Rfam assigns this 57-nucleotide RNA from Micromonospora radicis to the family "msiK RNA". Lineage of the source: Bacteria > Actinomycetota > Micromonosporales > Micromonosporaceae > Micromonospora. By type it is a cis-regulatory element.
RNA sequence: UGCUGGCUCCUUCACUCGGAUCGUCCGGCACGUUCCUGCCGGUGAAAGGAAGCGUCC
Numbered sequence: 001u002g003c004u005g006g007c008u009c010c011u012u013c014a015c016u017c018g019g020a021u022c023g024u025c026c027g028g029c030a031c032g033u034u035c036c037u038g039c040c041g042g043u044g045a046a047a048g049g050a051a052g053c054g055u056c057c
Base pairs, nucleotide, nucleotide: 008049009048011046012045013044014043025042026041027040028039029038030037